[Rfam]
RNA sequence: UGCUUCAAGUUCUCAUAAUUCAAAACGAAAAGUUUAUGGAAGUUUUUCAAAUGUAACUUAUCUUUUUGAAUUAUGAGAACUUGAAGCA
Dot-bracket structure: (((((((((((((((((((((((((.((.(((((..(((((...))))).....))))).)).)))))))))))))))))))))))))
Numbered sequence: 001u002g003c004u005u006c007a008a009g010u011u012c013u014c015a016u017a018a019u020u021c022a023a024a025a026c027g028a029a030a031a032g033u034u035u036a037u038g039g040a041a042g043u044u045u046u047u048c049a050a051a052u053g054u055a056a057c058u059u060a061u062c063u064u065u066u067u068g069a070a071u072u073a074u075g076a077g078a079a080c081u082u083g084a085a086g087c088a
Stems, first nucleotide, its partner, number of pairs: 001088025027062002030059005037049005